[Rfam]
RNA sequence: AAUCUGUCAUGGAUAACCUAGUGGGAGGCCCACCGCCAAGCUAGCGACCUUGCUUCGACCUUCGGUCAGCGGGUACGCGUGCCCGGUACGAACCCUGGGGUCGCCGCCACACUCGUGCGAGUAAUCCACGACGCUGUGAGGCGCUAAGCAAUGGAAGUGAACCUUGAGGGAAGCAAUUCUGCAGAGACACUUCCACCCUGGGGUGGCGUCGCCGGAAUACAUCGUCCCGUUACAGGGAAGCUGGCUGCUUGGUGAGACGACUGCACCUUUUUU
Numbered sequence: 001a002a003u004c005u006g007u008c009a010u011g012g013a014u015a016a017c018c019u020a021g022u023g024g025g026a027g028g029c030c031c032a033c034c035g036c037c038a039a040g041c042u043a044g045c046g047a048c049c050u051u052g053c054u055u056c057g058a059c060c061u062u063c064g065g066u067c068a069g070c071g072g073g074u075a076c077g078c079g080u081g082c083c084c085g086g087u088a089c090g091a092a093c094c095c096u097g098g099g100g101u102c103g104c105c106g107c108c109a110c111a112c113u114c115g116u117g118c119g120a121g122u123a124a125u126c127c128a129c130g131a132c133g134c135u136g137u138g139a140g141g142c143g144c145u146a147a148g149c150a151a152u153g154g155a156a157g158u159g160a161a162c163c164u165u166g167a168g169g170g171a172a173g174c175a176a177u178u179c180u181g182c183a184g185a186g187a188c189a190c191u192u193c194c195a196c197c198c199u200g201g202g203g204u205g206g207c208g209u210c211g212c213c214g215g216a217a218u219a220c221a222u223c224g225u226c227c228c229g230u231u232a233c234a235g236g237g238a239a240g241c242u243g244g245c246u247g248c249u250u251g252g253u254g255a256g257a258c259g260a261c262u263g264c265a266c267c268u269u270u271u272u273u
Stems, first nucleotide, its partner, number of pairs: 002014003020270002023267002027258001029256001031254004035249001037247001039246007048237003057067004070229003075225003079222003083215005088209003092204009102143001104141002108138004113131005119126002144148001152195007163186003170179003
The record is a 273-nucleotide RNA from Penicillium subrubescens, which matches "Fungal signal recognition particle RNA" in Rfam. The base pairs follow the family's consensus structure, which is taken from published work. Gene Ontology terms of the family: signal recognition particle, plasma membrane targeting, signal recognition particle, endoplasmic reticulum targeting and SRP-dependent cotranslational protein targeting to membrane, signal sequence recognition. On this family, see Wild et al., Curr Opin Struct Biol 2002: "Towards the structure of the mammalian signal recognition particle". Lineage of the source: Eukaryota > Dikarya > saccharomyceta > leotiomyceta > Penicillium. Clan: SRP clan. The match comes from Rfam's covariance-model search (167 bits). Rfam 15.1 lists 748 matches to the family in 741 species.